A member of the RNA family "Glycine riboswitch aptamer" from Bacillus sp. DNRA2, 91 nucleotides long.
RNA sequence: AUGAUGAUAUGGGGAGAGACUACUAGUGUAGCGCCGAAGGAGCAAGCUAAAAAAUAGCGAAUCUCUCAGGCAAAAGAACUCAUAUGGGACG
Numbered sequence: 001a002u003g004a005u006g007a008u009a010u011g012g013g014g015a016g017a018g019a020c021u022a023c024u025a026g027u028g029u030a031g032c033g034c035c036g037a038a039g040g041a042g043c044a045a046g047c048u049a050a051a052a053a054a055u056a057g058c059g060a061a062u063c064u065c066u067c068a069g070g071c072a073a074a075a076g077a078a079c080u081c082a083u084a085u086g087g088g089a090c091g
Base pairs, nucleotide, nucleotide: 007085008084009083010082011081012080013079020031021030022029023028033071034070035069036067037066040065041064042063046058047057
The organism belongs to Bacillus, within Bacteria. This family represents the bacterial glycine riboswitch.